Rfam assigns this 46-nucleotide RNA from Microcaecilia unicolor to the family "Histone 3' UTR stem-loop". NCBI's taxonomy places the organism under Eukaryota, Chordata, Craniata, Gnathostomata, Microcaecilia. Pairs were carried over by alignment from the consensus structure, which is taken from published work. The mRNAs of metazoan histone genes lack a poly-A tail. 3' end processing occurs at a site between a highly conserved stem-loop (modelled by this family) and a purine rich region around 20 nts downstream (the histone downstream element, or HDE). The stem-loop is bound by a 31 kDa stem-loop binding protein (SLBP - also termed the histone hairpin binding protein, or HBP). Together with U7 snRNA binding of the HDE, SLBP binding nucleate s the formation of the processing complex. The histone 3' UTR stem-loop is also involved in nucleocytoplasmic transport of the mRNA, and in stability regulation and translation efficiency in the cytoplasm. Rfam classes the family as a cis-regulatory element. It scores 36 bits against the family's covariance model.
RNA sequence: CCAAAGGUCUUUCUAAAGACCACAACCUUUUUCAAAAGAUCUACUU
Numbered sequence: 001c002c003a004a005a006g007g008u009c010u011u012u013c014u015a016a017a018g019a020c021c022a023c024a025a026c027c028u029u030u031u032u033c034a035a036a037a038g039a040u041c042u043a044c045u046u
Stems, first nucleotide, its partner, number of pairs: 006021006